[Rfam]
RNA sequence: ACGUGCUCCGGGGUCGGUGAGAAUCCGAACCGGCGGUGAUAGUCCGCGACCCGCGGCGUUGCGAAAGCAGCAAGGCGGUUGAGCCGGUGAAAUUCCGGCACCGACGGUAAUGGGAUGGCAGCAAGCUGCGCUCCCUCAGUCCGGAUGAGAGGAAGCACAC
Number, nucleotide and partner (000 for none) at each position: 001a000002c000003g158004u157005g156006c155007u154008c152009c151010g000011g000012g000013g000014u000015c027016g026017g025018u000019g000020a000021g000022a000023a000024u000025c017026c016027g015028a000029a000030c000031c103032g102033g047034c046035g045036g044037u000038g000039a000040u000041a000042g101043u100044c036045c035046g034047c033048g000049a000050c000051c078052c077053g076054c075055g000056g000057c000058g000059u000060u000061g000062c000063g000064a000065a000066a000067g000068c000069a000070g000071c000072a000073a000074g000075g054076c053077g052078g051079u000080u000081g000082a000083g099084c098085c097086g096087g095088u000089g000090a000091a000092a000093u000094u000095c087096c086097g085098g084099c083100a043101c042102c032103g031104a000105c143106g142107g141108u000109a000110a000111u000112g000113g000114g000115a000116u000117g000118g000119c000120a000121g000122c000123a000124a000125g000126c000127u000128g000129c000130g000131c000132u000133c000134c000135c000136u000137c000138a000139g000140u000141c107142c106143g105144g000145a000146u000147g000148a000149g000150a000151g009152g008153a000154a007155g006156c005157a004158c003159a000160c000
Rfam assigns this 160-nucleotide RNA from Salinibacterium sp. dk2585 to the family "FMN riboswitch aptamer (RFN element)". The match comes from Rfam's covariance-model search (79 bits). Rfam's curators write: The RFN element is a highly conserved domain that is found frequently in the 5'-untranslated regions of prokaryotic mRNAs that encode for flavin mononucleotide (FMN) biosynthesis and transport proteins.